[Rfam]
RNA sequence: UGCCGGUCCCCCCGCGACGACAAGCCGUGAACCCGGUCAGGCCCGGAAGGGAGCAGCCGUAGCGGUGGACUCGGGCGCCGGGGUGUGGCUGGUACGA
Dot-bracket structure: ...(((((.((((((..(((...(((((.....((((....(((....)))....))))..)))))....))).)...)))))...)))))......

Rfam assigns this 97-nucleotide RNA sequence from Thiohalophilus thiocyanatoxydans to the family "Bacterial small signal recognition particle RNA". Rfam links the family to the GO terms SRP-dependent cotranslational protein targeting to membrane, signal sequence recognition and signal recognition particle, plasma membrane targeting. The base pairs follow the family's consensus structure, which is taken from published work. It scores 69 bits against the family's covariance model.